The record is a 439-nucleotide part of an RNA from Bacteroides finegoldii, which matches "Bacterial large subunit ribosomal RNA" in Rfam. Taxonomically the source falls in Bacteroides (Bacteria, Pseudomonadati, Bacteroidales, Bacteroidaceae). The match comes from Rfam's covariance-model search (2767 bits). The base pairs follow the family's consensus structure, which is taken from published work. Clan: LSU clan.
[Rfam]
Nucleotides: 439
Base pairs, nucleotide, nucleotide: 001379002378003377004376005375006374011024012023013022014021015020026131027129028128029127030126031125032124033123036122037118038117039116040115041114042113043112044111045110051104052102053101058098059097062094063093064092065091069087070086071084072083073082074081135160136159137158138157139156140155141154142153143152144151165176166175167174180355181354182353183352185351186350187349191345192344193343200342202341203340204339205338206337207336221316222315225313226312227311228310229309230308231307232306234304242300243299244298245297246296248273249272250271253267254266255265274278279294283292284291356369357368358367359366360365380434382431383430384429385428386427387426390424391423392422399418400417401416402415403414404413405412406411
Number, partner (000 for none) and nucleotide at each position: 001379c002378u003377c004376c005375c006374c007000g008000a009000a010000a011024u012023g013022c014021a015020u016000u017000u018000a019000g020015g021014u022013g023012c024011a025000g026131c027129c028128u029127c030126g031125g032124g033123a034000a035000u036122u037118a038117c039116u040115a041114c042113u043112g044111u045110g046000a047000g048000g049000u050000a051104g052102a053101g054000c055000g056000a057000c058098u059097g060000a061000u062094a063093a064092g065091a066000u067000g068000c069087g070086a071084g072083g073082g074081c075000u076000u077000c078000a079000c080000c081074g082073c083072c084071u085000a086070u087069c088000a089000a090000g091065u092064c093063u094062u095000g096000a097059u098058a099000a100000a101053c102052u103000c104051c105000g106000a107000a108000u109000g110045c111044g112043c113042a114041g115040u116039a117038g118037u119000u120000c121000u122036a123033u124032c125031c126030c127029g128028g129027g130000a131026g132000u133000g134000a135160g136159g137158g138157c139156a140155u141154g142153g143152g144151u145000g146000c147000u148000a149000a150000g151144g152143u153142c154141c155140a156139u157138g158137u159136c160135c161000u162000a163000a164000a165176g166175g167174a168000g169000a170000a171000g172000a173000a174167u175166c176165c177000g178000g179000a180355c181354c182353a183352u184000c185351a186350g187349c188000u189000a190000a191345g192344g193343u194000c195000c196000c197000g198000a199000a200342a201000u202341a203340a204339u205338u206337g207336c208000u209000a210000a211000g212000u213000u214000g215000a216000a217000c218000u219000a220000a221316c222315g223000a224000a225313g226312u227311c228310a229309g230308a231307u232306u233000g234304c235000u236000a237000a238000g239000a240000c241000a242300g243299c244298u245297a246296g247000g248273a249272u250271g251000u252000u253267g254266g255265c256000u257000u258000g259000g260000a261000a262000g263000c264000a265255g266254c267253c268000a269000u270000u271250c272249a273248u274278u275000u276000a277000a278274a279294g280000a281000g282000u283292g284291c285000g286000u287000a288000a289000c290000a291284g292283c293000u294279c295000a296246c297245u298244a299243g300242u301000c302000g303000a304234g305000g306232a307231g308230u309229u310228u311227g312226g313225c314000g315222u316221g317000g318000a319000u320000a321000a322000u323000a324000a325000u326000c327000g328000g329000g330000c331000a332000u333000u334000a335000a336207g337206c338205a339204a340203u341202u342200u343193a344192c345191c346000g347000a348000a349187g350186c351185u352183a353182u354181g355180g356369g357368a358367u359366g360365u361000g362000u363000a364000a365360a366359c367358a368357u369356c370000g371000g372000u373000a374006g375005g376004g377003g378002a379001g380434c381000a382431u383430u384429c385428c386427a387426c388000u389000c390424u391423g392422c393000g394000u395000c396000g397000a398000a399418g400417g401416u402415g403414a404413a405412g406411c407000g408000u409000g410000a411406g412405c413404u414403u415402u416401g417400c418399u419000g420000g421000a422392g423391c424390g425000u426387g427386u428385g429384g430383a431382a432000a433000a434380g435000c436000a437000a438000a439000u